[Rfam]
RNA sequence: GGGAGAGUAUGUGUCCUGGUGGAUGCCGUGGCCUUCAAAGCCAUUGUGGGGUCGAAAGGCUCCUGGUGGGUUCAAUUCCCUCACUCUCCC
Numbered sequence: 001g002g003g004a005g006a007g008u009a010u011g012u013g014u015c016c017u018g019g020u021g022g023a024u025g026c027c028g029u030g031g032c033c034u035u036c037a038a039a040g041c042c043a044u045u046g047u048g049g050g051g052u053c054g055a056a057a058g059g060c061u062c063c064u065g066g067u068g069g070g071u072u073c074a075a076u077u078c079c080c081u082c083a084c085u086c087u088c089c090c
Stems, first nucleotide, its partner, number of pairs: 001090008011026006028044005048063004068080003

A member of the RNA family "Selenocysteine transfer RNA" from Thermodesulfobium narugense, 90 nucleotides long. For this family Rfam cites "tRNAscan-SE: a program for improved detection of transfer RNA genes in genomic sequence" (Lowe and Eddy, Nucleic Acids Res, 1997). It scores 74 bits against the family's covariance model.